[Rfam]
RNA sequence: CCCACACGUAUGUGUGUGGGACCCCAAAGGAUCACCAUUAAAUUUGGUACAGAUCUCUAGAAAAGUUAUCACAUGGGUGUGAGAUUUGAUGUUUUUAGAGAUAUGUGCCAAAUUUAAUGGUGAUCUUUUGGGGUCCUACACACAUGGGUGUAGG
Numbered sequence: 001c002c003c004a005c006a007c008g009u010a011u012g013u014g015u016g017u018g019g020g021a022c023c024c025c026a027a028a029g030g031a032u033c034a035c036c037a038u039u040a041a042a043u044u045u046g047g048u049a050c051a052g053a054u055c056u057c058u059a060g061a062a063a064a065g066u067u068a069u070c071a072c073a074u075g076g077g078u079g080u081g082a083g084a085u086u087u088g089a090u091g092u093u094u095u096u097a098g099a100g101a102u103a104u105g106u107g108c109c110a111a112a113u114u115u116a117a118u119g120g121u122g123a124u125c126u127u128u129u130g131g132g133g134u135c136c137u138a139c140a141c142a143c144a145u146g147g148g149u150g151u152a153g154g
Stems, first nucleotide, its partner, number of pairs: 002153001004151004009146005015140014030125003034121018053102011065090004069082005
RNA: MIR8565 microRNA precursor family